[Rfam]
RNA sequence: CACCUCUUGGUGAAAAUUAAGCCGAAAAGAGCAAGGUUUAGUAGCAUAGUCGAAAUACCUUGAGGCUAAUAAGAAA
Numbered sequence: 001c002a003c004c005u006c007u008u009g010g011u012g013a014a015a016a017u018u019a020a021g022c023c024g025a026a027a028a029g030a031g032c033a034a035g036g037u038u039u040a041g042u043a044g045c046a047u048a049g050u051c052g053a054a055a056u057a058c059c060u061u062g063a064g065g066c067u068a069a070u071a072a073g074a075a076a
Base pairs, nucleotide, nucleotide: 001012002011003010004009020067021066022065023064032062033061034060035059036058037057044051045049